[Rfam]
RNA: Nematode snoRNA ceN88
Organism: Pterocles burchelli
RNA sequence: CUCCUCCCGUUCUUGGCAGGUCCCAGCGGCUCGGUGCCGGGCUCUGUAAUGUCAGGGGAGGUAGAGCAGCGCCCGGCGCGAAGUCUUCGGUGCCGGCGGCUUUUCUCUGCCGGUCCUACCCUCACGUGCCGGGACAAAC
Numbered sequence: 001c002u003c004c005u006c007c008c009g010u011u012c013u014u015g016g017c018a019g020g021u022c023c024c025a026g027c028g029g030c031u032c033g034g035u036g037c038c039g040g041g042c043u044c045u046g047u048a049a050u051g052u053c054a055g056g057g058g059a060g061g062u063a064g065a066g067c068a069g070c071g072c073c074c075g076g077c078g079c080g081a082a083g084u085c086u087u088c089g090g091u092g093c094c095g096g097c098g099g100c101u102u103u104u105c106u107c108u109g110c111c112g113g114u115c116c117u118a119c120c121c122u123c124a125c126g127u128g129c130c131g132g133g134a135c136a137a138a139c
Stems, first nucleotide, its partner, number of pairs: 003061006010054001016047004022041003072133009089117002093113006